Overview
The family of this 356-nucleotide sequence from Hydrogenophaga sp. H7 is "Bacterial RNase P class A".
RNA sequence: GGAGCGCGCCAGACCGCCGCUGGCACGAGACCCGAAAGGGUGUGCUGGAGGAACGUCCGGACUGCACAGGACAGCGUAGGAGGUAACACCUCUCCACCGACAAGUCGCAAGACCCUAAGGUGAGGAUCAGAGCAACAGAGACGAGUCCGGUGGGAGUGCCGCAAGGCAGACCAGCCGGGGUGAAACGGGCAAUCUCUACGCGCAGCAAUACCAAAUAGGCCAGCGUUGAUGUGGUUCCGCGGAGCUGGCGGGUAGGUAGCACCGAGCCGGGUGGGCGACCCCCGGCCCAGAGGAAUGGCGGUCACAUCCGGGGCAACCCGGAUGCACAGAAUCCGGCUUAUCGGCGCGCUUCACAC
Dot-bracket structure: ((((((((((((((((((.((((((((.............))))))))....[.[.[[[[[((((...[[...((((((((((.....)))))(((((....................)))).)((...((((.............(((.(((.................))).)..)).........))..)))))))))))))...((((......((((((.....((((.]].))))..)))))).....)))).......((((((.((....))))))))..........)))))))............................]]]]]].].).))))))))))....
It scores 182 bits against the family's covariance model.